A member of the RNA family "sroB RNA" from Pantoea sp. M_5, 79 nucleotides long. The match comes from Rfam's covariance-model search (58 bits). The base pairs follow the family's consensus structure, which was predicted with LocARNA.
[Rfam]
RNA sequence: AAUUCGGUUGCUGAGCGAUAACCAAAAUCAUAAACAAAUUCCUCUUUGACGAGCCGAUAAUCUUAUCGGCUCUCUUUUU
Numbered sequence: 001a002a003u004u005c006g007g008u009u010g011c012u013g014a015g016c017g018a019u020a021a022c023c024a025a026a027a028u029c030a031u032a033a034a035c036a037a038a039u040u041c042c043u044c045u046u047u048g049a050c051g052a053g054c055c056g057a058u059a060a061u062c063u064u065a066u067c068g069g070c071u072c073u074c075u076u077u078u079u
Base pairs, nucleotide, nucleotide: 007019008018009017010016011015028033051072052071053070054069055068056067057066058065059064